Shown here is an 88-nucleotide sequence from Equus asinus, a member of the family "mir-9014 microRNA precursor family".
[Rfam]
RNA sequence: GGAGCCAGAGGGAAGGAUGUCAAUCCAGCCUUAGGAAAAGAAAACUUCCACAGGAAUCUUGGAGAUUGGCAGCCGUCCUAAUGACUUA
Numbered sequence: 001g002g003a004g005c006c007a008g009a010g011g012g013a014a015g016g017a018u019g020u021c022a023a024u025c026c027a028g029c030c031u032u033a034g035g036a037a038a039a040g041a042a043a044a045c046u047u048c049c050a051c052a053g054g055a056a057u058c059u060u061g062g063a064g065a066u067u068g069g070c071a072g073c074c075g076u077c078c079u080a081a082u083g084a085c086u087u088a
Base pairs, nucleotide, nucleotide: 002087003086004085006083007082010079011078012077013076015074016073018071019070020069021068022067023066024065025064029062030061038060039059040058041057045053046052